RNA: freshwater-2 RNA
RNA sequence: ACUUGCAAUAAAGCAGGUUUAUGGAGCAACACUUCGUAGCGAAUAGAACUCGCAUUGGACUACUAUUAUAGGAGAAAUCAAAUG
Numbered sequence: 001a002c003u004u005g006c007a008a009u010a011a012a013g014c015a016g017g018u019u020u021a022u023g024g025a026g027c028a029a030c031a032c033u034u035c036g037u038a039g040c041g042a043a044u045a046g047a048a049c050u051c052g053c054a055u056u057g058g059a060c061u062a063c064u065a066u067u068a069u070a071g072g073a074g075a076a077a078u079c080a081a082a083u084g
Base pairs, nucleotide, nucleotide: 001018002017003016004015005014006013020038021037022036023035024034025033026032039053040052041051042050